Purine riboswitch aptamer: a 99-nucleotide RNA sequence from Pelagirhabdus alkalitolerans. Gene Ontology term of the family: purine nucleobase biosynthetic process.

[Rfam]
RNA sequence: AUUAAAUAAUAUAAUUAACCUCAUAUAAUUUGAGAAUAAGGCUCAAAAGUUUCUACCCGUCGCCGUAAAUGAUGGACUAUGAGGGAAGAUGAACCAUUC
Number, nucleotide and partner (000 for none) at each position: 001a000002u000003u000004a000005a000006a000007u000008a000009a000010u000011a000012u000013a000014a000015u000016u000017a000018a000019c084020c083021u082022c081023a080024u079025a078026u000027a000028a000029u047030u046031u045032g044033a043034g042035a000036a000037u000038a000039a000040g000041g000042c034043u033044c032045a031046a030047a029048a000049g000050u000051u000052u000053c000054u000055a000056c000057c075058c074059g073060u072061c071062g070063c000064c000065g000066u000067a000068a000069a000070u062071g061072a060073u059074g058075g057076a000077c000078u025079a024080u023081g022082a021083g020084g019085g000086a000087a000088g000089a000090u000091g000092a000093a000094c000095c000096a000097u000098u000099c000
The organism belongs to Pelagirhabdus, within Bacteria. A search with the family's covariance model found it, with a score of 80 bits. The base pairs follow the family's consensus structure, which is taken from published work.